Background:
This 233-nucleotide part of an RNA from Thermomicrobium roseum belongs to the Rfam family "Bacterial large subunit ribosomal RNA". The organism belongs to Thermomicrobium roseum, within Bacteria. The family's consensus secondary structure is taken from published work.
RNA sequence: GAGUGGCCGGGCGUGGCGAGGCGAAGGGGGAGGCACCUGGAGCCGGAGCGAAAGCGAGUCUGAAGAGGGCGAGAAAGUCGCGCCUGGCCGACCCGAAACCGGGUGAGCUACCCCUGGCCAGGCUGAAGCGCGGGGGAGACCUGCGUGGAGGGCCGAACCGGUGUCCGUGGCAAAGGGCUCGGAGGAGCUGGGGGUAGGGGUGAAAUGCCAAGCGAACCCGGAGAUAGCUGGUU
Dot-bracket structure: ....(((((((((((((..(((...(((.......)))...)))...((....))..((((.....))))......)))))))))))))..((.(...((((((...((((((((((((.((((...(((((((.....)))))))....))))...(((..((((........)))).)))..).))))))))))).(((.....)))......))))))......).))..